[Rfam]
RNA sequence: CCUUGUCCGCAUGACUGACGCGAAUCAGGGGAGGCGACACCCCGAGGGAGUGCGGACCUGGGUGAAAACCCGGUAAAGCCGCGCGUCUGGGCGUAUUCC
Numbered sequence: 001c002c003u004u005g006u007c008c009g010c011a012u013g014a015c016u017g018a019c020g021c022g023a024a025u026c027a028g029g030g031g032a033g034g035c036g037a038c039a040c041c042c043c044g045a046g047g048g049a050g051u052g053c054g055g056a057c058c059u060g061g062g063u064g065a066a067a068a069c070c071c072g073g074u075a076a077a078g079c080c081g082c083g084c085g086u087c088u089g090g091g092c093g094u095a096u097u098c099c
Stems, first nucleotide, its partner, number of pairs: 005057008015047002017087005028043004076094001078092003

ZMP/ZTP riboswitch aptamer (pfl RNA motif): a 99-nucleotide RNA sequence from Propionivibrio dicarboxylicus. The base pairs follow the family's consensus structure, which is taken from published work. It scores 45 bits against the family's covariance model.